This 449-nucleotide part of an RNA from Halarchaeum acidiphilum belongs to the Rfam family "Archaeal large subunit ribosomal RNA". On this family, see Cannone et al., BMC Bioinformatics 2002: "The comparative RNA web (CRW) site: an online database of comparative sequence and structure information for ribosomal, intron, and other RNAs". The family's consensus secondary structure is taken from published work. Rfam 15.1 lists 2,955 matches to the family in 1,139 species.
RNA sequence: CCGACCGAAACAUGUCGAAGCAUGACCUUCGCCGAGGUAGUUCGUGAGGUAGAGCAACCGAUUGGGGAGUCCGCCUCCGAGAGGAGUCGGCCCCCCUGUCGAACUCCGAACUUACGGACGCCGUGGACGCGAGGAAUCCGGUGUGCGGGGUAAGCCUGUGCACCGUAAGGGAGACAACCCAGAGUAAGGUUAAGGUCCCAAAGUACGAGCUAAGUGCGAUUGAAGGUGGUCUCGAGCCCUAAACAGCCGGGAGGUGAGCUUAGAAGCAGCUAUCCUCCAAGAAAAGCGUAACAGCUUACCGGCCGAGGUUCGAGGCGCCCAAAAUGAUCGGGGCUCAAGUUCGUCACCGAGACCUUACGGCACCCUUAAGCGGGUGAUCCAGUAGGUCGGCGUUCCGUUCGGGUGGAAGCAUGGGCGAGAGUUCGUGUGGACCGGAUGGAAACGAAAAU
Numbered sequence: 001c002c003g004a005c006c007g008a009a010a011c012a013u014g015u016c017g018a019a020g021c022a023u024g025a026c027c028u029u030c031g032c033c034g035a036g037g038u039a040g041u042u043c044g045u046g047a048g049g050u051a052g053a054g055c056a057a058c059c060g061a062u063u064g065g066g067g068a069g070u071c072c073g074c075c076u077c078c079g080a081g082a083g084g085a086g087u088c089g090g091c092c093c094c095c096c097u098g099u100c101g102a103a104c105u106c107c108g109a110a111c112u113u114a115c116g117g118a119c120g121c122c123g124u125g126g127a128c129g130c131g132a133g134g135a136a137u138c139c140g141g142u143g144u145g146c147g148g149g150g151u152a153a154g155c156c157u158g159u160g161c162a163c164c165g166u167a168a169g170g171g172a173g174a175c176a177a178c179c180c181a182g183a184g185u186a187a188g189g190u191u192a193a194g195g196u197c198c199c200a201a202a203g204u205a206c207g208a209g210c211u212a213a214g215u216g217c218g219a220u221u222g223a224a225g226g227u228g229g230u231c232u233c234g235a236g237c238c239c240u241a242a243a244c245a246g247c248c249g250g251g252a253g254g255u256g257a258g259c260u261u262a263g264a265a266g267c268a269g270c271u272a273u274c275c276u277c278c279a280a281g282a283a284a285a286g287c288g289u290a291a292c293a294g295c296u297u298a299c300c301g302g303c304c305g306a307g308g309u310u311c312g313a314g315g316c317g318c319c320c321a322a323a324a325u326g327a328u329c330g331g332g333g334c335u336c337a338a339g340u341u342c343g344u345c346a347c348c349g350a351g352a353c354c355u356u357a358c359g360g361c362a363c364c365c366u367u368a369a370g371c372g373g374g375u376g377a378u379c380c381a382g383u384a385g386g387u388c389g390g391c392g393u394u395c396c397g398u399u400c401g402g403g404u405g406g407a408a409g410c411a412u413g414g415g416c417g418a419g420a421g422u423u424c425g426u427g428u429g430g431a432c433c434g435g436a437u438g439g440a441a442a443c444g445a446a447a448a449u
Stems, first nucleotide, its partner, number of pairs: 001390006011024005027134006036122003040119008052107001053105002060100003064096004069091001073088001075086004140164009169180003184358007194348003203345001205344006225319003229316010246303005252276003257271003277281001282297001286295002359380002361376005391444001393441010409428008